[Rfam]
Shown here is a 509-nucleotide part of an RNA from Vibrio maritimus, a member of the family "Bacterial large subunit ribosomal RNA".
RNA sequence: GACUAAGCGUACACGGUGGAUGCUUGGCAGUCAGAGGCGAUGAAAGGCGUAAUAACUUGCGAUAAGCUCAGAUUAGGUAGUAAUAACCUGUGAGUCUGAGAUUCCUGAAUGGGGAAACCCACCUGCAUAAGCAGGUAUCGCUGAGUGAAUACAUAGCUCAGCGAGGCGAACCGGGGGAACUGAAACAUCUAAGUACCCCGAGGAAGAGAAAUCAACCGAGAUUCCGAAAGUAGCGGCGAGCGAAAUUGGAUUAGCCCUUAAGCUUUUAAUGAGACAGGUGAAGGCUCUGGAAAGUGCCGCGAUACAGGGUGAUAGCCCCGUAACCGACAUCUCAUCAUCAGUGAAAUCGAGUAGGGCGGGACACGUGAUAUCCUGUCUGAAUAUGGGGGGACCAUCCUCCAAGGCUAAAUACUACUGACUGACCGAUAGUGAACCAGUACCGUGAGGGAAAGGCGAAAAGAACCCCUGUGAGGGGAGUGAAAUAGAACCUGAAACCGUGUACGUACAAG
Numbered sequence: 001g002a003c004u005a006a007g008c009g010u011a012c013a014c015g016g017u018g019g020a021u022g023c024u025u026g027g028c029a030g031u032c033a034g035a036g037g038c039g040a041u042g043a044a045a046g047g048c049g050u051a052a053u054a055a056c057u058u059g060c061g062a063u064a065a066g067c068u069c070a071g072a073u074u075a076g077g078u079a080g081u082a083a084u085a086a087c088c089u090g091u092g093a094g095u096c097u098g099a100g101a102u103u104c105c106u107g108a109a110u111g112g113g114g115a116a117a118c119c120c121a122c123c124u125g126c127a128u129a130a131g132c133a134g135g136u137a138u139c140g141c142u143g144a145g146u147g148a149a150u151a152c153a154u155a156g157c158u159c160a161g162c163g164a165g166g167c168g169a170a171c172c173g174g175g176g177g178a179a180c181u182g183a184a185a186c187a188u189c190u191a192a193g194u195a196c197c198c199c200g201a202g203g204a205a206g207a208g209a210a211a212u213c214a215a216c217c218g219a220g221a222u223u224c225c226g227a228a229a230g231u232a233g234c235g236g237c238g239a240g241c242g243a244a245a246u247u248g249g250a251u252u253a254g255c256c257c258u259u260a261a262g263c264u265u266u267u268a269a270u271g272a273g274a275c276a277g278g279u280g281a282a283g284g285c286u287c288u289g290g291a292a293a294g295u296g297c298c299g300c301g302a303u304a305c306a307g308g309g310u311g312a313u314a315g316c317c318c319c320g321u322a323a324c325c326g327a328c329a330u331c332u333c334a335u336c337a338u339c340a341g342u343g344a345a346a347u348c349g350a351g352u353a354g355g356g357c358g359g360g361a362c363a364c365g366u367g368a369u370a371u372c373c374u375g376u377c378u379g380a381a382u383a384u385g386g387g388g389g390g391a392c393c394a395u396c397c398u399c400c401a402a403g404g405c406u407a408a409a410u411a412c413u414a415c416u417g418a419c420u421g422a423c424c425g426a427u428a429g430u431g432a433a434c435c436a437g438u439a440c441c442g443u444g445a446g447g448g449a450a451a452g453g454c455g456a457a458a459a460g461a462a463c464c465c466c467u468g469u470g471a472g473g474g475g476a477g478u479g480a481a482a483u484a485g486a487a488c489c490u491g492a493a494a495c496c497g498u499g500u501a502c503g504u505a506c507a508a509g
Stems, first nucleotide, its partner, number of pairs: 007504010022489001023453001026424002028421007035413002037167002045106003048061003067100007076088003111120003121136006138164009171202001172200005182189002212219002222409001223250005233241002253406004263341002267337001269335006277325003283298003287294001301305001307319003354378008385400005440447002463475004